[Rfam]
RNA sequence: GACGCGGCGGGCCUCGUGCCAGUGGUGCGUUUGCACAUGCGUGUUUGUAACCUGUAAAUGCACUAUCUGGUACGACAGCCCGUCGCUG
Numbered sequence: 001g002a003c004g005c006g007g008c009g010g011g012c013c014u015c016g017u018g019c020c021a022g023u024g025g026u027g028c029g030u031u032u033g034c035a036c037a038u039g040c041g042u043g044u045u046u047g048u049a050a051c052c053u054g055u056a057a058a059u060g061c062a063c064u065a066u067c068u069g070g071u072a073c074g075a076c077a078g079c080c081c082g083u084c085g086c087u088g
Base pairs, nucleotide, nucleotide: 008082009081010080011079015074016073017072018071019070020069021068022067025063027061028060029059030058031057032056033055034054035053
The record is an 88-nucleotide sequence from Sitophilus oryzae, which matches "mir-277 microRNA precursor family" in Rfam. A reference for the family is Liu et al. (2010), "MicroRNAs of Bombyx mori identified by Solexa sequencing", BMC Genomics. A search with the family's covariance model found it, with a score of 67 bits. Taxonomically the source falls in Sitophilus (Eukaryota, Protostomia, Panarthropoda, Eumetabola).